Annotation: Shown here is a 594-nucleotide part of an RNA from Sulfobacillus acidophilus, a member of the family "Bacterial large subunit ribosomal RNA".
[Rfam]
RNA sequence: CACACACAGCACACGGGGGAUGCCUCGGGUGCGGAAGGGCGAAGAAGGUCGUGGCACGCCACGAAAGGCCUCGGGGAGCCGCGUCGCAGGCAACGAUCCGAGGGUGACCGAAUGGGGAAACCCCGCGGCCGACCGGCCGCGAUGGCCGUCCAGCGGGACGGACCAGGCAAAACCGGGGAACUGAAACAUCUCAGUACCCGGAUCGGAAAAGCAAACGCGAACUCCGCAGUAGCGGCGAGCGACCCGGAGUGAGUCCAAACGUCGCAGGUCAUCCCACGGCUGGAGGCCGGACCUGCGGCGGGUUGUGGCGGCGUUGCGGGAGUCCUCCAGACGAUCCCGCGUACGCCGGGAGACGAGGGUGAAGCGGUUGGAAUGCCGCGCCCUAGAGGGUGAAAGCCCCGUCGCUUUGGUCUCCCGGCGGCGUGCAACGCCGCCCGAGUACCACGCGGCACGAGAACCCGCGUGGGAAGCAGGGUGGCCCACCAUCCAAGACUGCCGACCUUCCGUCACCGAUAGCGCACAGUACCGUGAGGGAACGGUGAAAAGCCCCCCGGAAGGGGAGUGAAAGAGACCCUGAAACCGUGUGCUGACAAC
Numbered sequence: 001c002a003c004a005c006a007c008a009g010c011a012c013a014c015g016g017g018g019g020a021u022g023c024c025u026c027g028g029g030u031g032c033g034g035a036a037g038g039g040c041g042a043a044g045a046a047g048g049u050c051g052u053g054g055c056a057c058g059c060c061a062c063g064a065a066a067g068g069c070c071u072c073g074g075g076g077a078g079c080c081g082c083g084u085c086g087c088a089g090g091c092a093a094c095g096a097u098c099c100g101a102g103g104g105u106g107a108c109c110g111a112a113u114g115g116g117g118a119a120a121c122c123c124c125g126c127g128g129c130c131g132a133c134c135g136g137c138c139g140c141g142a143u144g145g146c147c148g149u150c151c152a153g154c155g156g157g158a159c160g161g162a163c164c165a166g167g168c169a170a171a172a173c174c175g176g177g178g179a180a181c182u183g184a185a186a187c188a189u190c191u192c193a194g195u196a197c198c199c200g201g202a203u204c205g206g207a208a209a210a211g212c213a214a215a216c217g218c219g220a221a222c223u224c225c226g227c228a229g230u231a232g233c234g235g236c237g238a239g240c241g242a243c244c245c246g247g248a249g250u251g252a253g254u255c256c257a258a259a260c261g262u263c264g265c266a267g268g269u270c271a272u273c274c275c276a277c278g279g280c281u282g283g284a285g286g287c288c289g290g291a292c293c294u295g296c297g298g299c300g301g302g303u304u305g306u307g308g309c310g311g312c313g314u315u316g317c318g319g320g321a322g323u324c325c326u327c328c329a330g331a332c333g334a335u336c337c338c339g340c341g342u343a344c345g346c347c348g349g350g351a352g353a354c355g356a357g358g359g360u361g362a363a364g365c366g367g368u369u370g371g372a373a374u375g376c377c378g379c380g381c382c383c384u385a386g387a388g389g390g391u392g393a394a395a396g397c398c399c400c401g402u403c404g405c406u407u408u409g410g411u412c413u414c415c416c417g418g419c420g421g422c423g424u425g426c427a428a429c430g431c432c433g434c435c436c437g438a439g440u441a442c443c444a445c446g447c448g449g450c451a452c453g454a455g456a457a458c459c460c461g462c463g464u465g466g467g468a469a470g471c472a473g474g475g476u477g478g479c480c481c482a483c484c485a486u487c488c489a490a491g492a493c494u495g496c497c498g499a500c501c502u503u504c505c506g507u508c509a510c511c512g513a514u515a516g517c518g519c520a521c522a523g524u525a526c527c528g529u530g531a532g533g534g535a536a537c538g539g540u541g542a543a544a545a546g547c548c549c550c551c552c553g554g555a556a557g558g559g560g561a562g563u564g565a566a567a568g569a570g571a572c573c574c575u576g577a578a579a580c581c582g583u584g585u586g587c588u589g590a591c592a593a594c
Stems, first nucleotide, its partner, number of pairs: 007589010022574001023539002027511002029508001031507008039168002047109003050063003069103007078091003114123003124141007143165003146161006172203001173201005183190002211218002222249005232240002252494004260300011307436002310434001312430005344420011358406003364379005382386001388400003442466008473488005526533002549560004
Taxonomically the source falls in Sulfobacillus acidophilus (Bacteria, Bacillati, Clostridia, Sulfobacillus).
The sequence is in the family's curated seed alignment.